[Rfam]
RNA sequence: UUGAUGACCGGUUUCGUGCCUAAUGCACAUCUUCACUGCUACAAUUUUGACCUGAAGAUGUGCUAUUAGGCACGAAACCGGUCACCA
Numbered sequence: 001u002u003g004a005u006g007a008c009c010g011g012u013u014u015c016g017u018g019c020c021u022a023a024u025g026c027a028c029a030u031c032u033u034c035a036c037u038g039c040u041a042c043a044a045u046u047u048u049g050a051c052c053u054g055a056a057g058a059u060g061u062g063c064u065a066u067u068a069g070g071c072a073c074g075a076a077a078c079c080g081g082u083c084a085c086c087a
Stems, first nucleotide, its partner, number of pairs: 008081004015074009025063001027061009
This 87-nucleotide RNA sequence from Oryctes borbonicus belongs to the Rfam family "mir-277 microRNA precursor family". The family's consensus secondary structure was predicted with RNAalifold. NCBI's taxonomy places the organism under Eukaryota, Panarthropoda, Hexapoda, Scarabaeidae, Oryctes. On this family, see Liu et al., BMC Genomics 2010: "MicroRNAs of Bombyx mori identified by Solexa sequencing".